[Rfam]
Nucleotides: 438
Base pairs, nucleotide, nucleotide: 015033016032017031018030019029020028034436035435036434037433043416044415045414046413049396050395054078055077056076057075058074063071064070085392086391087390089150090149094144095143096112097111098110100109101108102107120135121134154171155170156169157168158167174388175387176386177385179384180383181382182381183380184378191200192199193198208365209364210363211362212361213360217350218349219348220347222345223344224343225342226341227340228339230335231334232333233253234252236250237249238248257306258305259304260303261302266296267295268294269293270292271291275287276286277285278284313330314329315328316327317326318325402411403410418430419429420428421427
Number, partner (000 for none) and nucleotide at each position: 001000g002000g003000u004000a005000g006000u007000a008000g009000c010000a011000a012000a013000u014000a015033u016032u017031c018030a019029a020028g021000u022000g023000a024000g025000a026000a027000c028020c029019u030018u031017g032016a033015a034436g035435a036434c037433u038000g039000a040000a041000g042000u043416g044415g045414a046413g047000a048000a049396a050395g051000g052000u053000u054078c055077c056076a057075u058074g059000g060000u061000a062000a063071c064070a065000g066000c067000a068000g069000u070064u071063g072000g073000a074058c075057a076056u077055g078054g079000g080000u081000u082000a083000g084000u085392c086391g087390a088000u089150c090149c091000u092000a093000a094144g095143a096112g097111a098110u099000a100109g101108g102107g103000a104000a105000a106000c107102u108101c109100c110098g111097u112096u113000u114000u115000a116000a117000a118000g119000u120135u121134g122000u123000g124000a125000g126000a127000u128000u129000u130000u131000c132000c133000u134121c135120a136000c137000c138000g139000c140000c141000u142000a143095u144094c145000g146000a147000a148000a149090g150089g151000g152000a153000a154171u155170c156169c157168g158167g159000u160000u161000a162000a163000a164000a165000u166000u167158c168157c169156g170155g171154a172000a173000c174388c175387a176386g177385g178000a179384u180383g181382u182381a183380g184378a185000u186000u187000c188000u189000c190000a191200a192199c193198g194000g195000c196000a197000a198193c199192g200191u201000a202000a203000a204000u205000g206000a207000a208365c209364u210363u211362g212361g213360a214000g215000a216000c217350a218349c219348u220347g221000g222345c223344a224343a225342g226341g227340g228339c229000c230335c231334c232333g233253g234252g235000a236250a237249g238248a239000g240000u241000u242000a243000u244000c245000u246000u247000u248238u249237c250236u251000c252234c253233u254000u255000a256000a257306c258305a259304g260303u261302c262000u263000a264000c265000c266296a267295c268294c269293c270292u271291g272000a273000a274000a275287u276286c277285g278284g279000a280000u281000u282000a283000u284278c285277c286276g287275g288000a289000g290000c291271u292270a293269g294268g295267g296266u297000u298000c299000a300000a301000u302261g303260g304259c305258u306257g307000g308000u309000a310000g311000a312000g313330c314329u315328c316327g317326a318325c319000a320000c321000c322000u323000c324000c325318g326317u327316c328315g329314g330313g331000u332000c333232c334231g335230g336000u337000g338000c339228g340227u341226u342225c343224u344223u345222g346000a347220c348219a349218g350217u351000c352000c353000u354000u355000g356000a357000a358000a359000a360213u361212c362211c363210a364209a365208g366000g367000g368000a369000a370000u371000g372000a373000a374000u375000a376000a377000u378184u379000u380183u381182u382181a383180c384179g385177c386176c387175u388174g389000g390087u391086c392085g393000u394000a395050c396049u397000c398000a399000u400000a401000a402411c403410c404000g405000c406000a407000g408000c409000a410403g411402g412000u413046c414045u415044c416043c417000u418430a419429g420428g421427u422000g423000a424000a425000c426000a427421g428420c429419c430418u431000c432000u433037a434036g435035u436034u437000g438000a

This 438-nucleotide part of an RNA from Rhizoctonia solani belongs to the Rfam family "Eukaryotic large subunit ribosomal RNA". The base pairs follow the family's consensus structure, which is taken from published work. The literature on the family includes a 2002 paper in BMC Bioinformatics by Cannone et al., "The comparative RNA web (CRW) site: an online database of comparative sequence and structure information for ribosomal, intron, and other RNAs".